[Rfam]
RNA sequence: CCUGGGGCGCUGCCCCAGGCUGUAAUAUUUCGCCCUUUCAGGGCC
Numbered sequence: 001c002c003u004g005g006g007g008c009g010c011u012g013c014c015c016c017a018g019g020c021u022g023u024a025a026u027a028u029u030u031c032g033c034c035c036u037u038u039c040a041g042g043g044c045c
Base pairs, nucleotide, nucleotide: 001019002018003017004016005015006014007013008012032044033043034042035041036040
Background:
The family of this 45-nucleotide RNA sequence from Desulfonema ishimotonii is "Acido-Lenti-1 RNA". The family has 87 seed sequences and 2,607 matches in Rfam 15.1. The family's RNA type in Rfam is small RNA. The family's consensus secondary structure is taken from published work.